[Rfam]
RNA sequence: GUCUGAGGUAGAGGUUGCGAGGCUUAUUAACGCUGUGGAGUGAAGAGACACGCGGAAGCAGAACUAGGAAGCAUCGCCGAAAUCAGCUGGCAUCUCUUUUGCCUUCUGGUUGGGACAUAAGUAAAGAGCUUAUGGACUGUCUUAGUUUUAGAGACUAAGUUGCGCUAUGUUUUAC
Numbered sequence: 001g002u003c004u005g006a007g008g009u010a011g012a013g014g015u016u017g018c019g020a021g022g023c024u025u026a027u028u029a030a031c032g033c034u035g036u037g038g039a040g041u042g043a044a045g046a047g048a049c050a051c052g053c054g055g056a057a058g059c060a061g062a063a064c065u066a067g068g069a070a071g072c073a074u075c076g077c078c079g080a081a082a083u084c085a086g087c088u089g090g091c092a093u094c095u096c097u098u099u100u101g102c103c104u105u106c107u108g109g110u111u112g113g114g115a116c117a118u119a120a121g122u123a124a125a126g127a128g129c130u131u132a133u134g135g136a137c138u139g140u141c142u143u144a145g146u147u148u149u150a151g152a153g154a155c156u157a158a159g160u161u162g163c164g165c166u167a168u169g170u171u172u173u174a175c
Stems, first nucleotide, its partner, number of pairs: 006170001008168004017077004022072004033061004081111006089103004112138002116134007141159006
Dot-bracket structure: .....(.((((.....((((.((((.......((((.....................)))).......)))).))))...((((((..((((.......))))..))))))((..(((((((.....)))))))..))..((((((.......)))))).....)))).).....
RNA: Lysine riboswitch aptamer